[Rfam]
RNA: L4-Archaeoglobi ribosomal protein leades
RNA sequence: CUGACGGGCGCGUCCGGGUCGAAUUGCGGACUGCAACACCCGAUCUCCCUGCCGAUACCGCCAUCGAUGGCGGUAUCGGCAGGGGAACGCGUCACCAUCAG
Number, nucleotide and partner (000 for none) at each position: 001c101002u100003g099004a098005c000006g000007g000008g092009c091010g090011c089012g088013u087014c000015c042016g041017g040018g039019u000020c000021g000022a000023a000024u036025u035026g034027c033028g000029g000030a000031c000032u000033g027034c026035a025036a024037c000038a000039c018040c017041c016042g015043a000044u000045c000046u086047c085048c084049c083050u082051g000052c079053c078054g077055a076056u075057a074058c073059c072060g071061c070062c069063a000064u000065c000066g000067a000068u000069g062070g061071c060072g059073g058074u057075a056076u055077c054078g053079g052080c000081a000082g050083g049084g048085g047086a046087a013088c012089g011090c010091g009092u008093c000094a000095c000096c000097a000098u004099c003100a002101g001